[Rfam]
RNA sequence: ACUGUGGAGCCAUCUCUCCAGCCCCAUUAACAUUUUAUUUAAAAUAUUUCAUUUAGGGCUGGAGAGAUGGCUCAGUGGU
Numbered sequence: 001a002c003u004g005u006g007g008a009g010c011c012a013u014c015u016c017u018c019c020a021g022c023c024c025c026a027u028u029a030a031c032a033u034u035u036u037a038u039u040u041a042a043a044a045u046a047u048u049u050c051a052u053u054u055a056g057g058g059c060u061g062g063a064g065a066g067a068u069g070g071c072u073c074a075g076u077g078g079u
Stems, first nucleotide, its partner, number of pairs: 002078004007073018
Record summary: mir-3473 microRNA precursor family: a 79-nucleotide sequence from Nannospalax galili. Its family is annotated with miRNA-mediated post-transcriptional gene silencing, RISC complex and cellular response to mechanical stimulus in the Gene Ontology.